[Rfam]
RNA sequence: UCUCUGGAGAGUGCUGCUUUACGCAGCCGCCAACGGGGAAACGGUCGCCUUCUACAUAAUCUUGUAGUGAAGGUGUACUUAAACUCUCAGGUGACAAGGACAGGGA
Numbered sequence: 001u002c003u004c005u006g007g008a009g010a011g012u013g014c015u016g017c018u019u020u021a022c023g024c025a026g027c028c029g030c031c032a033a034c035g036g037g038g039a040a041a042c043g044g045u046c047g048c049c050u051u052c053u054a055c056a057u058a059a060u061c062u063u064g065u066a067g068u069g070a071a072g073g074u075g076u077a078c079u080u081a082a083a084c085u086c087u088c089a090g091g092u093g094a095c096a097a098g099g100a101c102a103g104g105g106a
Base pairs, nucleotide, nucleotide: 001106002105003104004103005102006101013027014026015025016024029092030091031090033087036086037085038084043078